[Rfam]
RNA sequence: CCAUCAUCACCACGUAACUGAAUGAUCUUUCAGGUAUUUGGUGUGCUUGGAAGAUGACUUCCGAGCAGGUACGAAUAAAACGCUAUCCUUUAAAGCCCCUCGGAAGUUGACUUUCGAGGGGUUUGUUUU
Numbered sequence: 001c002c003a004u005c006a007u008c009a010c011c012a013c014g015u016a017a018c019u020g021a022a023u024g025a026u027c028u029u030u031c032a033g034g035u036a037u038u039u040g041g042u043g044u045g046c047u048u049g050g051a052a053g054a055u056g057a058c059u060u061c062c063g064a065g066c067a068g069g070u071a072c073g074a075a076u077a078a079a080a081c082g083c084u085a086u087c088c089u090u091u092a093a094a095g096c097c098c099c100u101c102g103g104a105a106g107u108u109g110a111c112u113u114u115c116g117a118g119g120g121g122u123u124u125g126u127u128u129u
Stems, first nucleotide, its partner, number of pairs: 008045003011040002014037001018033004046065008093124014
RNA: Histidine operon leader
Organism: Aggregatibacter segnis